[Rfam]
Nucleotides: 378
Stems, first nucleotide, its partner, number of pairs: 001374007020347007029338001034334005040328002044321005049068005056080005137158004142153003161197006170188002173185003177211006214243007227258001229256001261296004267290004272285003276313004280308001282306001351367005
Number, partner (000 for none) and nucleotide at each position: 001374g002373g003372g004371g005370g006369c007368g008000u009000u010000u011000u012000g013000g014000a015000u016000u017000c018000g019000a020347c021346g022345g023344g024343g025342a026341c027000a028000g029338u030000u031000c032000g033000a034334g035333c036332a037331u038330g039000c040328a041327c042000g043000g044321c045320g046319g047318g048317u049068c050067g051066u052065g053064g054000g055000g056080c057079c058078g059077c060076g061000a062000g063000g064053c065052c066051a067050c068049g069000u070000u071000a072000a073000a074000a075000a076060c077059g078058c079057g080056g081000a082000c083000c084000u085000a086000a087000g088000a089000a090000u091000a092000a093000c094000u095000g096000g097000c098000a099000a100000a101000g102000c103000u104000a105000a106000a107000a108000a109000c110000c111000g112000u113000u114000u115000c116000a117000c118000c119000u120000c121000a122000a123000a124000c125000a126000g127000c128000a129000a130000u131000c132000u133000c134000g135000c136000c137158c138157u139156g140155g141000c142153u143152g144151c145000c146000u147000a148000a149000u150000c151144g152143c153142a154000c155140c156139c157138a158137g159000g160000c161197c162196a163195u164194c165193g166192c167000u168000u169000c170188g171187u172000g173185a174184g175183u176000c177211g178210c179209u180208c181207g182206u183175g184174c185173u186000g187171a188170c189000u190000u191000a192166g193165c194164g195163a196162u197161g198000u199000c200000a201000a202000u203000u204000u205000a206182g207181c208180g209179a210178g211177c212000u213000a214243g215242c216241c217240a218239g219238u220237g221000u222000c223000c224000a225000g226000c227258g228000u229256u230000c231000g232000c233000g234000g235000c236000u237220c238219a239218u240217u241216g242215g243214c244000g245000a246000a247000a248000u249000u250000g251000a252000g253000c254000g255000a256229a257000c258227u259000c260000a261296c262295c263294c264293u265000u266000c267290g268289a269288u270287g271000a272285g273284c274283g275000u276313g277312u278311g279310a280308a281000a282306c283274c284273g285272c286000g287270c288269a289268u290267c291000c292000u293264g294263g295262g296261g297000a298000c299000a300000u301000u302000u303000a304000a305000a306282g307000g308280u309000u310279u311278c312277a313276c314000u315000a316000c317048a318047c319046c320045c321044g322000u323000a324000g325000a326000a327041g328040u329000u330038c331037a332036u333035g334034u335000a336000g337000c338029g339000a340000g341026g342025u343024c344023u345022u346021c347020g348000g349000a350000c351367g352366c353365g354364g355363g356000u357000u358000c359000g360000a361000c362000u363355c364354c365353c366352g367351u368007c369006g370005c371004c372003u373002c374001c375000a376000c377000c378000a
Notes: The record is a 378-nucleotide sequence from an Alicyclobacillaceae bacterium, which matches "transfer-messenger RNA" in Rfam. Bacterial tmRNA, also known as 10Sa RNA or SsrA, is named for its dual tRNA and mRNA-like properties. Its role is to liberate the mRNA from a stalled ribosome. To accomplish this part of the tmRNA is used as a reading frame that ends in a translation stop signal. The broken mRNA is replaced in the ribosome by the tmRNA and translation of the tmRNA leads to addition of a proteolysis tag to the incomplete protein enabling recognition by a protease. Its family is annotated with RNA catabolic process in the Gene Ontology. The base pairs follow the family's consensus structure, which is taken from published work.